[Rfam]
RNA sequence: GGAGACUGGCGGCGGACGGGCCGCCGGGUAACCCGGUCAGGUCCGGAAGGAAGCAGCCGCAACGAUCUCCGCCUGGGUCGCUGUCCGGUCUCUCAC
Numbered sequence: 001g002g003a004g005a006c007u008g009g010c011g012g013c014g015g016a017c018g019g020g021c022c023g024c025c026g027g028g029u030a031a032c033c034c035g036g037u038c039a040g041g042u043c044c045g046g047a048a049g050g051a052a053g054c055a056g057c058c059g060c061a062a063c064g065a066u067c068u069c070c071g072c073c074u075g076g077g078u079c080g081c082u083g084u085c086c087g088g089u090c091u092c093u094c095a096c
Stems, first nucleotide, its partner, number of pairs: 003091005009084006017075005023067001027063001029061001034059004042051003
The family of this 96-nucleotide RNA sequence from Rhodobaculum claviforme is "Bacterial small signal recognition particle RNA". Lineage of the source: Bacteria > Pseudomonadota > Alphaproteobacteria > Rhodobacterales > Rhodobaculum. It is annotated as a non-coding RNA gene. About the family: The signal recognition particle (SRP) is a universally conserved ribonucleoprotein involved in the co-translational targeting of proteins to membranes. The family's consensus secondary structure is taken from published work.